[Rfam]
RNA sequence: AGAGACAUAAGGAGGGAUCUCAAUUCAGCCUUAGGAAAAGAAACCUGCCAUGGGAGUCUUGGAGACUGGCAGUCGUCCUAAUGACUUA
Numbered sequence: 001a002g003a004g005a006c007a008u009a010a011g012g013a014g015g016g017a018u019c020u021c022a023a024u025u026c027a028g029c030c031u032u033a034g035g036a037a038a039a040g041a042a043a044c045c046u047g048c049c050a051u052g053g054g055a056g057u058c059u060u061g062g063a064g065a066c067u068g069g070c071a072g073u074c075g076u077c078c079u080a081a082u083g084a085c086u087u088a
Stems, first nucleotide, its partner, number of pairs: 002087003006083003010079004015074002018071001020069003024065002029062002038060004044054004
Dot-bracket structure: .(((.(((.((((.((.(.(((.((...((.......((((..((((...))))..)))))).)).))).).)).)))).))).))).